Rfam assigns this 71-nucleotide sequence from Bradyrhizobium diazoefficiens to the family "terC RNA".
Lineage of the source: Bacteria > Alphaproteobacteria > Hyphomicrobiales > Nitrobacteraceae > Bradyrhizobium diazoefficiens.
It is one of the family's seed sequences.
RNA sequence: ACAAGAAUCCGGGCCCCUCUGGCGAGGCCGCCGACGAAUGUCGGCAAACCUCGUGAUGUCGGAUGACCUGU
Numbered sequence: 001a002c003a004a005g006a007a008u009c010c011g012g013g014c015c016c017c018u019c020u021g022g023c024g025a026g027g028c029c030g031c032c033g034a035c036g037a038a039u040g041u042c043g044g045c046a047a048a049c050c051u052c053g054u055g056a057u058g059u060c061g062g063a064u065g066a067c068c069u070g071u
Stems, first nucleotide, its partner, number of pairs: 007064006022054006